The family of this 75-nucleotide RNA from Streptomyces boncukensis is "ASpks TB sRNA". The organism belongs to Streptomyces, within Bacteria. The family's consensus secondary structure is taken from published work. The match comes from Rfam's covariance-model search (85 bits).
[Rfam]
RNA sequence: CUUGAUCGAGCCCAGCCACAGCGGCCUGCCCUCCGGACGGUCCUGCCCGUAGGUGGCGAUCAGCGCCUGCGCCUC
Numbered sequence: 001c002u003u004g005a006u007c008g009a010g011c012c013c014a015g016c017c018a019c020a021g022c023g024g025c026c027u028g029c030c031c032u033c034c035g036g037a038c039g040g041u042c043c044u045g046c047c048c049g050u051a052g053g054u055g056g057c058g059a060u061c062a063g064c065g066c067c068u069g070c071g072c073c074u075c
Stems, first nucleotide, its partner, number of pairs: 015025003031071001033069001038065002044059001047056003